[Rfam]
RNA sequence: AAAUAAACUGUGAUGAAGAGGAGUACACUGAUACAGCUCCCAGAGAGGAAAACCCUUGGCUGAAAGGUUUUUCGAGAAAUGUACAGUGGAAGGUAGCUUCGGAGUUUUCGCAUUGAACCUUAGUAGAUGCGAACGGCUGACCCCGUUAUGGUCGCAAAGUGUCUUUGAGCAUCCUAAAAUGCCAAAGAAACAAAGGUGGUACCACGGAAUCUCUUUCGUCCUUUAC
Numbered sequence: 001a002a003a004u005a006a007a008c009u010g011u012g013a014u015g016a017a018g019a020g021g022a023g024u025a026c027a028c029u030g031a032u033a034c035a036g037c038u039c040c041c042a043g044a045g046a047g048g049a050a051a052a053c054c055c056u057u058g059g060c061u062g063a064a065a066g067g068u069u070u071u072u073c074g075a076g077a078a079a080u081g082u083a084c085a086g087u088g089g090a091a092g093g094u095a096g097c098u099u100c101g102g103a104g105u106u107u108u109c110g111c112a113u114u115g116a117a118c119c120u121u122a123g124u125a126g127a128u129g130c131g132a133a134c135g136g137c138u139g140a141c142c143c144c145g146u147u148a149u150g151g152u153c154g155c156a157a158a159g160u161g162u163c164u165u166u167g168a169g170c171a172u173c174c175u176a177a178a179a180u181g182c183c184a185a186a187g188a189a190a191c192a193a194a195g196g197u198g199g200u201a202c203c204a205c206g207g208a209a210u211c212u213c214u215u216u217c218g219u220c221c222u223u224u225a226c
Stems, first nucleotide, its partner, number of pairs: 007105002015100004026088005037076003049071006108132007134145003162188006193223004204219005
RNA: T-box leader